The family of this 134-nucleotide sequence is "Streptomyces RNA 3920". For this family Rfam cites "Deep sequencing-based identification of small non-coding RNAs in Streptomyces coelicolor" (Vockenhuber et al., RNA Biol, 2011). About the family: Identified by deep sequencing of transcriptome at the end of exponential growth phase. Sequencing size consistent with northern blot size. A search with the family's covariance model found it, with a score of 100 bits. Rfam classes the family as a small RNA.
RNA sequence: GAUAGGUCGCUGCCGCUACUGUGAUUGGACACUGACGCAGAGUCAACUAGCCUUGUCGUGGCGGCUCUUCACGAGGAGAACGGGAGGGGCCGGGGCGGUCCGAGCCACGAGGGGGGAGGCUCGGACCGCCGUAC
Numbered sequence: 001g002a003u004a005g006g007u008c009g010c011u012g013c014c015g016c017u018a019c020u021g022u023g024a025u026u027g028g029a030c031a032c033u034g035a036c037g038c039a040g041a042g043u044c045a046a047c048u049a050g051c052c053u054u055g056u057c058g059u060g061g062c063g064g065c066u067c068u069u070c071a072c073g074a075g076g077a078g079a080a081c082g083g084g085a086g087g088g089g090c091c092g093g094g095g096c097g098g099u100c101c102g103a104g105c106c107a108c109g110a111g112g113g114g115g116g117a118g119g120c121u122c123g124g125a126c127c128g129c130c131g132u133a134c
Base pairs, nucleotide, nucleotide: 001014003012004011005010015051016050017049018048021032022031023030033045034044035043036042059074061072063070064069075091094130095129096128097127098126099125100124101123102122103121104120105119106118108115